[Rfam]
The family of this 147-nucleotide RNA from Paenibacillus ginsengarvi is "c-di-AMP riboswitch aptamer (ydaO/yuaA leader)". It scores 78 bits against the family's covariance model. About the family: This family represents a conserved RNA structure found upstream of the ydaO and yuaA genes in Bacillus subtilis and related genes in other bacteria. The organism belongs to Paenibacillus, within Bacteria.
RNA sequence: AUUAUAAACUUGCCGAAUCCGGAUAUACCGAAUAUCCGGUACGGGGGACGAUUUACUCGGGGUGAAUGCCUUUAGCUCCAUAGCGAGGCAGGGGAAAUCCUCUUCCCUAACCCGUCAACUAACCUCGGAGGCAGCAGGAGGGAACUG
Numbered sequence: 001a002u003u004a005u006a007a008a009c010u011u012g013c014c015g016a017a018u019c020c021g022g023a024u025a026u027a028c029c030g031a032a033u034a035u036c037c038g039g040u041a042c043g044g045g046g047g048a049c050g051a052u053u054u055a056c057u058c059g060g061g062g063u064g065a066a067u068g069c070c071u072u073u074a075g076c077u078c079c080a081u082a083g084c085g086a087g088g089c090a091g092g093g094g095a096a097a098u099c100c101u102c103u104u105c106c107c108u109a110a111c112c113c114g115u116c117a118a119c120u121a122a123c124c125u126c127g128g129a130g131g132c133a134g135c136a137g138g139a140g141g142g143a144a145c146u147g
Stems, first nucleotide, its partner, number of pairs: 011133004019039007042127005049059002060113003068089004092107004